Notes
Shown here is a 193-nucleotide RNA sequence from Tetracentron sinense, a member of the family "MIR159 microRNA precursor family". The match comes from Rfam's covariance-model search (80 bits). Its family is annotated with miRNA-mediated post-transcriptional gene silencing and RISC complex in the Gene Ontology. A reference for the family is Jones-Rhoades and Bartel (2004), "Computational identification of plant microRNAs and their targets, including a stress-induced miRNA", Mol Cell.
[Rfam]
RNA sequence: GAGAGGCCAUUGGAGCUCCCUUCAAUCCAAGUAAGGAAAGAACAAGGCUAUCUCAUCUCCUGGUUCAUGCACACCCUUAAGCUGCGCAUCAUAUCUCCUAACCUGCGCACACAAAGGUAUUCAUGAACUAGCAGAUGUAAACACCUUCUUUCCUUCCUGAGUUGGAUAAAAGGGAGCUCCGUCGACCACUAAC
Numbered sequence: 001g002a003g004a005g006g007c008c009a010u011u012g013g014a015g016c017u018c019c020c021u022u023c024a025a026u027c028c029a030a031g032u033a034a035g036g037a038a039a040g041a042a043c044a045a046g047g048c049u050a051u052c053u054c055a056u057c058u059c060c061u062g063g064u065u066c067a068u069g070c071a072c073a074c075c076c077u078u079a080a081g082c083u084g085c086g087c088a089u090c091a092u093a094u095c096u097c098c099u100a101a102c103c104u105g106c107g108c109a110c111a112c113a114a115a116g117g118u119a120u121u122c123a124u125g126a127a128c129u130a131g132c133a134g135a136u137g138u139a140a141a142c143a144c145c146u147u148c149u150u151u152c153c154u155u156c157c158u159g160a161g162u163u164g165g166a167u168a169a170a171a172g173g174g175a176g177c178u179c180c181g182u183c184g185a186c187c188a189c190u191a192a193c
Stems, first nucleotide, its partner, number of pairs: 013179008025167005036156001057134002060131003066125004074117001